Small nucleolar RNA Z279/snoR105/snoR108: a 104-nucleotide RNA from Dendrobium nobile. Lineage of the source: Eukaryota > Euphyllophyta > Orchidaceae > Dendrobieae > Dendrobium. On this family, see Marker et al., Curr Biol 2002: "Experimental RNomics: identification of 140 candidates for small non-messenger RNAs in the plant Arabidopsis thaliana". Rfam links the family to the GO terms nucleolus and RNA processing. Rfam describes the family as follows. This family includes the plant snoRNAs known as Z279, snoR105 and snoR108. The family's RNA type in Rfam is C/D-box small nucleolar RNA.

[Rfam]
RNA sequence: GGGAUAUGAAGAGUGGUCAAAGCUCGCUAGCUAUGCGAGAAGAGUGUCCGCCCCGUAUUUUGUUACGACAAAAGGGGCACUCUAUUAUUUACCUUUCUGAUCCC
Numbered sequence: 001g002g003g004a005u006a007u008g009a010a011g012a013g014u015g016g017u018c019a020a021a022g023c024u025c026g027c028u029a030g031c032u033a034u035g036c037g038a039g040a041a042g043a044g045u046g047u048c049c050g051c052c053c054c055g056u057a058u059u060u061u062g063u064u065a066c067g068a069c070a071a072a073a074g075g076g077g078c079a080c081u082c083u084a085u086u087a088u089u090u091a092c093c094u095u096u097c098u099g100a101u102c103c104c
Stems, first nucleotide, its partner, number of pairs: 001104004015093003023039005041083006047076002060074002063071001
Dot-bracket structure: ((((..........(((.....(((((.......))))).((((((((...........((.(.......).)))).)))))).......))).......))))